[Rfam]
RNA: MIR480 microRNA precursor family
RNA sequence: UAAUUUAUUGGGAUCAACCUCAUUUAAUUAUGACAAACUAACAUCUAACUAUCUAGAAUCAUUUAUUUUUUUAUGAAGAAUAACUUUUUAAGAUUUUAAUUGAAGU
Numbered sequence: 001u002a003a004u005u006u007a008u009u010g011g012g013a014u015c016a017a018c019c020u021c022a023u024u025u026a027a028u029u030a031u032g033a034c035a036a037a038c039u040a041a042c043a044u045c046u047a048a049c050u051a052u053c054u055a056g057a058a059u060c061a062u063u064u065a066u067u068u069u070u071u072u073a074u075g076a077a078g079a080a081u082a083a084c085u086u087u088u089u090a091a092g093a094u095u096u097u098a099a100u101u102g103a104a105g106u
Stems, first nucleotide, its partner, number of pairs: 004104004008099002012095001014093002016089002025083001027081003